[Rfam]
RNA sequence: UACUCUGGAAAAGUUUUUCCGUAUGGAAAAACGCCGAAGGGGCAAGACUCGUUUUAAUUUAUAGCGGGUCCAAUCUCUCAGGUAUAGACAGAGGA
Numbered sequence: 001u002a003c004u005c006u007g008g009a010a011a012a013g014u015u016u017u018u019c020c021g022u023a024u025g026g027a028a029a030a031a032c033g034c035c036g037a038a039g040g041g042g043c044a045a046g047a048c049u050c051g052u053u054u055u056a057a058u059u060u061a062u063a064g065c066g067g068g069u070c071c072a073a074u075c076u077c078u079c080a081g082g083u084a085u086a087g088a089c090a091g092a093g094g095a
Stems, first nucleotide, its partner, number of pairs: 001095001003093005014031004033083003036079002040077003046070008

Overview
This 95-nucleotide RNA from Anoxybacter fermentans belongs to the Rfam family "Glycine riboswitch aptamer". The organism belongs to Anoxybacter, within Bacteria. It scores 41 bits against the family's covariance model.